[Rfam]
Rfam assigns this 98-nucleotide RNA sequence to the family "pemK RNA". Rfam's curators put it in the seed alignment. Rfam classes the family as a cis-regulatory element.

RNA sequence: ACAAUGAUACUUCCUUACAGCCACAGUCCGAGCGUUAAGAGCGUCGCAGGCAAUGGGUAGGGCGGCAUGAGAACCAUGCCGGGGUGAAAUUCCCAUGA
Numbered sequence: 001a002c003a004a005u006g007a008u009a010c011u012u013c014c015u016u017a018c019a020g021c022c023a024c025a026g027u028c029c030g031a032g033c034g035u036u037a038a039g040a041g042c043g044u045c046g047c048a049g050g051c052a053a054u055g056g057g058u059a060g061g062g063c064g065g066c067a068u069g070a071g072a073a074c075c076a077u078g079c080c081g082g083g084g085u086g087a088a089a090u091u092c093c094c095a096u097g098a
Base pairs, nucleotide, nucleotide: 012095013062014061015060016059017058018057063081064080065079067077068076069075082094083093084092
Dot-bracket structure: ...........(((((((......................................))))))(((.(((.....))).)))(((.......))))...